[Rfam]
RNA sequence: GCUGAUGUACGUGAUGACGAAUACUUUUUUCCCCAUCAGAGCGACUCUGUUGAUCUUACUGCAUUAGCCAGAUCUUGUCUGAUACAUCAGC
Number, nucleotide and partner (000 for none) at each position: 001g091002c090003u089004g088005a087006u086007g085008u084009a083010c000011g000012u000013g000014a000015u000016g000017a000018c000019g000020a000021a000022u000023a000024c000025u000026u000027u000028u000029u000030u000031c000032c000033c000034c000035a000036u000037c000038a000039g000040a000041g000042c000043g000044a000045c000046u000047c000048u000049g000050u000051u000052g000053a000054u000055c000056u000057u000058a000059c000060u000061g000062c000063a000064u000065u000066a000067g000068c000069c000070a000071g000072a000073u000074c000075u000076u000077g000078u000079c000080u000081g000082a000083u009084a008085c007086a006087u005088c004089a003090g002091c001

Shown here is a 91-nucleotide RNA sequence from Salvator merianae, a member of the family "Small nucleolar SNORD12/SNORD106". Gene Ontology terms of the family: RNA processing and nucleolus. The family is grouped with related families in Rfam's "SNORD12 clan". Lineage of the source: Eukaryota > Tetrapoda > Laterata > Teiidae > Salvator. The match comes from Rfam's covariance-model search (80 bits). Pairs were carried over by alignment from the consensus structure, which was predicted with RNAalifold. The literature on the family includes a 2001 paper in EMBO J by Huttenhofer et al., "RNomics: an experimental approach that identifies 201 candidates for novel, small, non-messenger RNAs in mouse".